[Rfam]
Shown here is a 177-nucleotide RNA sequence from Salisediminibacterium halotolerans, a member of the family "Lysine riboswitch aptamer". Lineage of the source: Bacteria > Bacillati > Caryophanales > Bacillaceae > Salisediminibacterium. The match comes from Rfam's covariance-model search (95 bits). Rfam describes the family as follows. Riboswitches are metabolite binding domains within certain messenger RNAs that serve as precision sensors for their corresponding targets.
RNA sequence: UGAAUAGGCAGAGGCGCAGCUGCGAUGAGUAAGAUGUUUACGUCAAUAGACGAACGUUUCUGGAAGGCAAAGUUGCCGAAGCUGUUUAAAACUAACGUUCGAAACAGCUGGGGCUGUCUUUAAUAAAGGCAGCACUGUCACUGCACGCAUGCCAUGCAGUGAAGCACUGACCGCGCA
Numbered sequence: 001u002g003a004a005u006a007g008g009c010a011g012a013g014g015c016g017c018a019g020c021u022g023c024g025a026u027g028a029g030u031a032a033g034a035u036g037u038u039u040a041c042g043u044c045a046a047u048a049g050a051c052g053a054a055c056g057u058u059u060c061u062g063g064a065a066g067g068c069a070a071a072g073u074u075g076c077c078g079a080a081g082c083u084g085u086u087u088a089a090a091a092c093u094a095a096c097g098u099u100c101g102a103a104a105c106a107g108c109u110g111g112g113g114c115u116g117u118c119u120u121u122a123a124u125a126a127a128g129g130c131a132g133c134a135c136u137g138u139c140a141c142u143g144c145a146c147g148c149a150u151g152c153c154a155u156g157c158a159g160u161g162a163a164g165c166a167c168u169g170a171c172c173g174c175g176c177a
Stems, first nucleotide, its partner, number of pairs: 007171001009169003016076006024068001032061003036057002080109008090099002110136002113133008138162007